Shown here is a 57-nucleotide RNA from Tabrizicola piscis, a member of the family "terC RNA". The base pairs follow the family's consensus structure, which is taken from published work. Rfam classes the family as a cis-regulatory element. A search with the family's covariance model found it, with a score of 50 bits.
[Rfam]
RNA sequence: CUCAGCGACCGGGCCCCUCUGACAGGUAUUUGCAUGCCUGUGAUGUCGGCGCUGAGA
Numbered sequence: 001c002u003c004a005g006c007g008a009c010c011g012g013g014c015c016c017c018u019c020u021g022a023c024a025g026g027u028a029u030u031u032g033c034a035u036g037c038c039u040g041u042g043a044u045g046u047c048g049g050c051g052c053u054g055a056g057a
Stems, first nucleotide, its partner, number of pairs: 006051002009049004022041008